[Rfam]
RNA sequence: UAAGUAGGUCGUCUUAUCGCUUCAUAAGAAGAGGAAAGUCCGGACACCACAGAGUAGCAUAACGGAUAACAUCCGUCCGGUGAAAAUCGAGGACAAGUGCAACAGAAAGCAAGUACAGUUCGGCUGUAGUGAAAACAGGUAAACUCUAUGCGGUGCAAUGCCAUGUAUAUUGAAAUUUUAGAGUUACUCGCUCUAUUUCAAGGGGUAGGCAGAUUGAGCUAUAAAGUAAUUUAUAGCCUAGAUAAAUGAUAAGAAUUUACUUCGGUAAAUACAAAAUCCGGCUUACAGACCUGCUUAAUUU
Numbered sequence: 001u002a003a004g005u006a007g008g009u010c011g012u013c014u015u016a017u018c019g020c021u022u023c024a025u026a027a028g029a030a031g032a033g034g035a036a037a038g039u040c041c042g043g044a045c046a047c048c049a050c051a052g053a054g055u056a057g058c059a060u061a062a063c064g065g066a067u068a069a070c071a072u073c074c075g076u077c078c079g080g081u082g083a084a085a086a087u088c089g090a091g092g093a094c095a096a097g098u099g100c101a102a103c104a105g106a107a108a109g110c111a112a113g114u115a116c117a118g119u120u121c122g123g124c125u126g127u128a129g130u131g132a133a134a135a136c137a138g139g140u141a142a143a144c145u146c147u148a149u150g151c152g153g154u155g156c157a158a159u160g161c162c163a164u165g166u167a168u169a170u171u172g173a174a175a176u177u178u179u180a181g182a183g184u185u186a187c188u189c190g191c192u193c194u195a196u197u198u199c200a201a202g203g204g205g206u207a208g209g210c211a212g213a214u215u216g217a218g219c220u221a222u223a224a225a226g227u228a229a230u231u232u233a234u235a236g237c238c239u240a241g242a243u244a245a246a247u248g249a250u251a252a253g254a255a256u257u258u259a260c261u262u263c264g265g266u267a268a269a270u271a272c273a274a275a276a277u278c279c280g281g282c283u284u285a286c287a288g289a290c291c292u293g294c295u296u297a298a299u300u301u
Base pairs, nucleotide, nucleotide: 001297002296003295004294005293006292007291008290009289010288011286012254013253014252015251016250017249018248020031021030022029023028036284037283038282040281041280042279043278044277045155046154047153048152052189053188054187055186057151058150059149060148061147062076063075064074065073066072077091078089079088080087081086092146093145097144098143099140100139114128115127116126117125118124119123159211160210161209162208170201171200172199173198174197180194181193182192183191184190218237219236220235221234222233223232224231225230
The record is a 301-nucleotide RNA from Lutibacter sp. B1, which matches "Bacterial RNase P class A" in Rfam. Pairs were carried over by alignment from the consensus structure, which is taken from published work. Rfam links the family to the GO terms ribonuclease P activity, dimeric ribonuclease P complex and tRNA processing. NCBI's taxonomy places the organism under Bacteria, Pseudomonadati, Flavobacteriia, Flavobacteriales, Lutibacter. From the family's description: Ribonuclease P (RNase P) is a ubiquitous endoribonuclease, found in archaea, bacteria and eukarya as well as chloroplasts and mitochondria.